The record is a 128-nucleotide RNA sequence, which matches "Plastid-psbA-1 3UTR RNA" in Rfam. The family's consensus secondary structure was predicted with LocARNA.
RNA sequence: UCGAAGCUCCAACAAAUGGCUAAGACUUGUUCUUAGGGUGUAGGAGUUUUUGAAAAUAGACUAGAUAAAUAUAAGGAGCAAGAAACCCUUUUUUGAUAAAACAAGAAAGGGUUUCUUGCUCCUUUAUU
Numbered sequence: 001u002c003g004a005a006g007c008u009c010c011a012a013c014a015a016a017u018g019g020c021u022a023a024g025a026c027u028u029g030u031u032c033u034u035a036g037g038g039u040g041u042a043g044g045a046g047u048u049u050u051u052g053a054a055a056a057u058a059g060a061c062u063a064g065a066u067a068a069a070u071a072u073a074a075g076g077a078g079c080a081a082g083a084a085a086c087c088c089u090u091u092u093u094u095g096a097u098a099a100a101a102c103a104a105g106a107a108a109g110g111g112u113u114u115c116u117u118g119c120u121c122c123u124u125u126a127u128u
Stems, first nucleotide, its partner, number of pairs: 009019002073124012086111003090107005
The family is grouped with related families in Rfam's "Plastid-psbA 3UTR RNA clan".
For this family Rfam cites "Retrograde signaling in plants: A critical review focusing on the GUN pathway and beyond" (Richter et al., Plant Commun, 2023).
From the family's description: Plastid psbA-1 is a non-coding RNA (ncRNA) present in plastids.